[Rfam]
RNA sequence: GUAAUGUUUCUUGCUCAAAUGAGUAUUCCAACGGCAGUGGAUUUCUUUAAUUGCAUGCAUAUUCUAACGGAAACCCCCACGUGUGUGACUGAUUUUCAAACCACUGAUUUCAGUGGGAAACACUAUUUUUCAACAUGCAUAUAUAUUUGCUUUAAUUUUCUAUUUAUAAUAACCUUGGACCGGAAAGAAUCCGAACCCGUUUCUGUAGCUACCAAUCCAUGCAUGUGCUGUUUCUGAGAUGCUCAUUUGAGUAAGCAAUGUUAA
Number, nucleotide and partner (000 for none) at each position: 001g000002u000003a000004a261005u260006g259007u258008u257009u000010c255011u254012u253013g252014c251015u250016c249017a248018a247019a246020u245021g244022a243023g242024u241025a240026u239027u238028c000029c236030a235031a000032c000033g000034g000035c000036a000037g000038u000039g000040g000041a000042u000043u000044u000045c000046u000047u000048u000049a000050a000051u000052u000053g000054c000055a000056u000057g000058c000059a000060u000061a000062u000063u000064c000065u000066a000067a000068c000069g000070g000071a000072a000073a000074c000075c000076c000077c000078c000079a000080c000081g000082u000083g000084u000085g000086u000087g000088a000089c000090u000091g000092a000093u000094u000095u000096u000097c000098a000099a000100a000101c000102c000103a000104c000105u000106g000107a000108u000109u000110u000111c000112a000113g000114u000115g000116g000117g000118a000119a000120a000121c000122a000123c000124u000125a000126u000127u000128u000129u000130u000131c000132a000133a000134c000135a000136u000137g000138c000139a000140u000141a000142u000143a000144u000145a000146u000147u000148u000149g000150c000151u000152u000153u000154a000155a000156u000157u000158u000159u000160c000161u000162a000163u000164u000165u000166a000167u000168a000169a000170u000171a000172a000173c000174c000175u000176u000177g000178g000179a000180c000181c000182g000183g000184a000185a000186a000187g000188a000189a000190u000191c000192c000193g000194a000195a000196c000197c000198c000199g000200u000201u000202u000203c000204u000205g000206u000207a000208g000209c000210u000211a000212c000213c000214a000215a000216u000217c000218c000219a000220u000221g000222c000223a000224u000225g000226u000227g000228c000229u000230g000231u000232u000233u000234c000235u030236g029237a000238g027239a026240u025241g024242c023243u022244c021245a020246u019247u018248u017249g016250a015251g014252u013253a012254a011255g010256c000257a008258a007259u006260g005261u004262u000263a000264a000
RNA: MIR828 microRNA precursor family
Organism: Rhododendron simsii